RNA sequence: GCGCCCGAGGGUGCACGCCGGCCGGCGAGGUUUCGCCCGCCGGCGUUUUAUG
Numbered sequence: 001g002c003g004c005c006c007g008a009g010g011g012u013g014c015a016c017g018c019c020g021g022c023c024g025g026c027g028a029g030g031u032u033u034c035g036c037c038c039g040c041c042g043g044c045g046u047u048u049u050a051u052g
Base pairs, nucleotide, nucleotide: 016045017044018043019042020041021040022039025036026035027034028033
Annotation:
The record is a 52-nucleotide RNA from Alterirhizorhabdus solaris, which matches "ffh sRNA" in Rfam. A search with the family's covariance model found it, with a score of 41 bits. By type it is a small RNA. The organism belongs to Alterirhizorhabdus, within Bacteria. The literature on the family includes a 2009 paper in BMC Genomics by Meyer et al., "Identification of candidate structured RNAs in the marine organism 'Candidatus Pelagibacter ubique'".